[Rfam]
RNA sequence: UAUGCAAGUGAUGAUGAAAAGACAGGGACAUCAGAAUCUCCUUGUUAGGAGAUGAGAAUGAUGACUAAUGUCUAGAUGGGAAUCUCUCUGAUGCAUA
Numbered sequence: 001u002a003u004g005c006a007a008g009u010g011a012u013g014a015u016g017a018a019a020a021g022a023c024a025g026g027g028a029c030a031u032c033a034g035a036a037u038c039u040c041c042u043u044g045u046u047a048g049g050a051g052a053u054g055a056g057a058a059u060g061a062u063g064a065c066u067a068a069u070g071u072c073u074a075g076a077u078g079g080g081a082a083u084c085u086c087u088c089u090g091a092u093g094c095a096u097a
Stems, first nucleotide, its partner, number of pairs: 002096005
Shown here is a 97-nucleotide RNA sequence, a member of the family "Small nucleolar RNA R44/J54/Z268 family".
Rfam links the family to the GO terms nucleolus and RNA processing.
It is one of the family's seed sequences.
Clan: SNORD74 clan.